Background:
tRNA: a 72-nucleotide RNA sequence from Lactuca saligna. The family's consensus secondary structure is taken from published work.

[Rfam]
RNA sequence: UCCCCUAUGGUCCAAUGGUUACGAUCUCUCUCUUUCACGGAGAAAACGAGGGUUCAAGUCCCUCUAGGGGUA
Numbered sequence: 001u002c003c004c005c006u007a008u009g010g011u012c013c014a015a016u017g018g019u020u021a022c023g024a025u026c027u028c029u030c031u032c033u034u035u036c037a038c039g040g041a042g043a044a045a046a047c048g049a050g051g052g053u054u055c056a057a058g059u060c061c062c063u064c065u066a067g068g069g070g071u072a
Stems, first nucleotide, its partner, number of pairs: 002070006010025003027043005048064005